[Rfam]
RNA sequence: GCAUCGAUGAGCUGGUCUGGUGACUGGGCGCGGCUUCAAACCGCGUGGCGCCUGGCGGCGCAGGGGUUCGAUUCCUCCUUCGGUGC
Numbered sequence: 001g002c003a004u005c006g007a008u009g010a011g012c013u014g015g016u017c018u019g020g021u022g023a024c025u026g027g028g029c030g031c032g033g034c035u036u037c038a039a040a041c042c043g044c045g046u047g048g049c050g051c052c053u054g055g056c057g058g059c060g061c062a063g064g065g066g067u068u069c070g071a072u073u074c075c076u077c078c079u080u081c082g083g084u085g086c
Stems, first nucleotide, its partner, number of pairs: 001086007009078001012027006028046006048061005063077004